[Rfam]
Nucleotides: 061
Base pairs, nucleotide, nucleotide: 004040005039006038007037010030011029012028013027014023015022016021
Number, partner (000 for none) and nucleotide at each position: 001000u002000c003000a004040a005039u006038g007037g008000c009000a010030g011029u012028u013027g014023a015022g016021u017000u018000a019000a020000g021016a022015c023014u024000u025000g026000a027013c028012a029011a030010c031000g032000u033000a034000a035000g036000a037007c038006c039005a040004u041000c042000a043000c044000c045000g046000g047000a048000c049000a050000u051000g052000a053000a054000c055000g056000a057000a058000g059000a060000g061000g
Description
This 61-nucleotide RNA sequence belongs to the Rfam family "cow-rumen-1 RNA". The base pairs follow the family's consensus structure, which is taken from published work.